Background
The family of this 68-nucleotide sequence from Morella rubra is "Plastid-clpP 5UTR RNA". A reference for the family is Richter et al. (2023), "Retrograde signaling in plants: A critical review focusing on the GUN pathway and beyond", Plant Commun. The base pairs follow the family's consensus structure, which was predicted with LocARNA. The organism belongs to Morella, within Eukaryota.
RNA sequence: AGUUCCGUUUGUAGGAACAAAAAGAAGCAGAUCUAUUCUAUACCGAUAAGUACCAAUACGCAAUGGUA
Numbered sequence: 001a002g003u004u005c006c007g008u009u010u011g012u013a014g015g016a017a018c019a020a021a022a023a024g025a026a027g028c029a030g031a032u033c034u035a036u037u038c039u040a041u042a043c044c045g046a047u048a049a050g051u052a053c054c055a056a057u058a059c060g061c062a063a064u065g066g067u068a
Stems, first nucleotide, its partner, number of pairs: 003022002007018004042067003050059003

It scores 80 bits against the family's covariance model. About the family: Plastid clpP is a non-coding RNA (ncRNA) recognised in plastids. It was found in the prime untranslated region (5UTR) of a protease complex subunit (clpP) in plastids, suggesting a posible cis-regulatory function.